[Rfam]
RNA sequence: CCAACGGCUCUUUUAAGAGCCACCCACUAUUGUCCUGAAAAGGGCUG
Number, nucleotide and partner (000 for none) at each position: 001c000002c000003a000004a000005c000006g021007g020008c019009u018010c017011u016012u000013u000014u000015a000016a011017g010018a009019g008020c007021c006022a000023c000024c000025c000026a000027c000028u000029a000030u000031u000032g000033u000034c000035c000036u000037g000038a000039a000040a000041a000042g000043g000044g000045c000046u000047g000
RNA: Histone 3' UTR stem-loop
Organism: Pedionomus torquatus